The family of this 88-nucleotide RNA is "Small nucleolar RNA SNORD93". The base pairs follow the family's consensus structure, which was predicted with RNAalifold. It is one of the family's seed sequences. Its family is annotated with nucleolus and RNA processing in the Gene Ontology. A reference for the family is Galardi et al. (2002), "Purified box C/D snoRNPs are able to reproduce site-specific 2'-O-methylation of target RNA in vitro", Mol Cell Biol.
RNA sequence: UGGCCAGGGAUGAAAACAAUCAUCUGAUUACUUGCAUACUUACAGUGUUAUGCAGAAGUCUGAUGGAUUAAAGGAUUUUCUGAGGCCA
Numbered sequence: 001u002g003g004c005c006a007g008g009g010a011u012g013a014a015a016a017c018a019a020u021c022a023u024c025u026g027a028u029u030a031c032u033u034g035c036a037u038a039c040u041u042a043c044a045g046u047g048u049u050a051u052g053c054a055g056a057a058g059u060c061u062g063a064u065g066g067a068u069u070a071a072a073g074g075a076u077u078u079u080c081u082g083a084g085g086c087c088a
Base pairs, nucleotide, nucleotide: 002087003086004085005084